[Rfam]
RNA sequence: CCCUGUGGUAGUUUUCCUUCUGGCCAGUUUGUUAAGUAUCAAAUAGGCCUGACUCUGCCACAUAGAUUACACAGGAGCAAGCAGUCUUGGGGAUGGUCAGGCCGCAUCUGAGCCUCUCCCCACUUUAGAGAUUACUUUAGCUCCCACAUGC
Numbered sequence: 001c002c003c004u005g006u007g008g009u010a011g012u013u014u015u016c017c018u019u020c021u022g023g024c025c026a027g028u029u030u031g032u033u034a035a036g037u038a039u040c041a042a043a044u045a046g047g048c049c050u051g052a053c054u055c056u057g058c059c060a061c062a063u064a065g066a067u068u069a070c071a072c073a074g075g076a077g078c079a080a081g082c083a084g085u086c087u088u089g090g091g092g093a094u095g096g097u098c099a100g101g102c103c104g105c106a107u108c109u110g111a112g113c114c115u116c117u118c119c120c121c122a123c124u125u126u127a128g129a130g131a132u133u134a135c136u137u138u139a140g141c142u143c144c145c146a147c148a149u150g151c
Stems, first nucleotide, its partner, number of pairs: 005061007022049003027044005074144005080087002104136001106132003